RNA: Small nucleolar RNA SNORA43
RNA sequence: GAUGCCAGACCUCCUGGCCCCAGCAGUGCAGCUGCUCUGCUGCACCUGUGACAUUGGGUCAGAGAGGAAGUGGCUAUUUCUAUGCUCAGUGCUCAGAACAGUGGGUACUAAGAAUGGUUUGUAGCUGGACACAG
Numbered sequence: 001g002a003u004g005c006c007a008g009a010c011c012u013c014c015u016g017g018c019c020c021c022a023g024c025a026g027u028g029c030a031g032c033u034g035c036u037c038u039g040c041u042g043c044a045c046c047u048g049u050g051a052c053a054u055u056g057g058g059u060c061a062g063a064g065a066g067g068a069a070g071u072g073g074c075u076a077u078u079u080c081u082a083u084g085c086u087c088a089g090u091g092c093u094c095a096g097a098a099c100a101g102u103g104g105g106u107a108c109u110a111a112g113a114a115u116g117g118u119u120u121g122u123a124g125c126u127g128g129a130c131a132c133a134g
Stems, first nucleotide, its partner, number of pairs: 003061002005057004022049001024048003072126003080117003085112002090107006